This 68-nucleotide sequence belongs to the Rfam family "Salmonella enterica sRNA STnc40". It scores 66 bits against the family's covariance model.

RNA sequence: ACAGUGCCAUGGCCGUCUAAGCUAAGGUCUGACAAAAUCGAAGAGGCGCAGCUUGCUGCGCCUUUUUU
Number, nucleotide and partner (000 for none) at each position: 001a000002c000003a018004g017005u000006g013007c012008c000009a000010u000011g000012g007013c006014c000015g000016u000017c004018u003019a000020a000021g000022c000023u000024a000025a000026g000027g000028u000029c000030u000031g000032a000033c000034a000035a000036a000037a000038u000039c000040g000041a066042a065043g064044a063045g062046g061047c060048g059049c058050a057051g056052c000053u000054u000055g000056c051057u050058g049059c048060g047061c046062c045063u044064u043065u042066u041067u000068u000